[Rfam]
RNA sequence: AUUAUGUAUCAGCAAAACAGGUGAAAGCCUGUGACGCAAAGCUAUAGGGUCUUUGAAAUGACAGCCAGUUGCAAGA
Numbered sequence: 001a002u003u004a005u006g007u008a009u010c011a012g013c014a015a016a017a018c019a020g021g022u023g024a025a026a027g028c029c030u031g032u033g034a035c036g037c038a039a040a041g042c043u044a045u046a047g048g049g050u051c052u053u054u055g056a057a058a059u060g061a062c063a064g065c066c067a068g069u070u071g072c073a074a075g076a
Base pairs, nucleotide, nucleotide: 012037013036017032018031019030020029021028022027040070041069042068043067047066048065049062050061051060
Notes
Shown here is a 76-nucleotide RNA from Roseburia sp. CAG:45, a member of the family "c-di-GMP-I riboswitch aptamer". The base pairs follow the family's consensus structure, which is taken from published work. Gene Ontology term of the family: cyclic-di-GMP binding.